Rfam assigns this 124-nucleotide RNA from Corynebacterium sp. 366 to the family "L31-Corynebacteriaceae ribosomal protein leader".

[Rfam]
RNA sequence: ACUCGGGCACGACCUUGGACUGUAGCGGGGCUCUCGCACAGUACCUGGCGAACAGCACCUGGUACACAGUGCAGUACCUCUGACACACGUUCCAAGGACCGACCCGUUGACAAACCUUUAGGGA
Numbered sequence: 001a002c003u004c005g006g007g008c009a010c011g012a013c014c015u016u017g018g019a020c021u022g023u024a025g026c027g028g029g030g031c032u033c034u035c036g037c038a039c040a041g042u043a044c045c046u047g048g049c050g051a052a053c054a055g056c057a058c059c060u061g062g063u064a065c066a067c068a069g070u071g072c073a074g075u076a077c078c079u080c081u082g083a084c085a086c087a088c089g090u091u092c093c094a095a096g097g098a099c100c101g102a103c104c105c106g107u108u109g110a111c112a113a114a115c116c117u118u119u120a121g122g123g124a
Stems, first nucleotide, its partner, number of pairs: 002109001004106004013097007
A search with the family's covariance model found it, with a score of 40 bits.